[Rfam]
RNA: Small nucleolar RNA SNORD34
RNA sequence: UAUGGCCUAUGAUGGAACAUUAUAUAUGCCUACAUUGUCUGAUCUUAUUAACUUGAUUGAGCAAUAUUGUCUGAGGCCUUG
Numbered sequence: 001u002a003u004g005g006c007c008u009a010u011g012a013u014g015g016a017a018c019a020u021u022a023u024a025u026a027u028g029c030c031u032a033c034a035u036u037g038u039c040u041g042a043u044c045u046u047a048u049u050a051a052c053u054u055g056a057u058u059g060a061g062c063a064a065u066a067u068u069g070u071c072u073g074a075g076g077c078c079u080u081g
Base pairs, nucleotide, nucleotide: 001081002080004078005077006076007075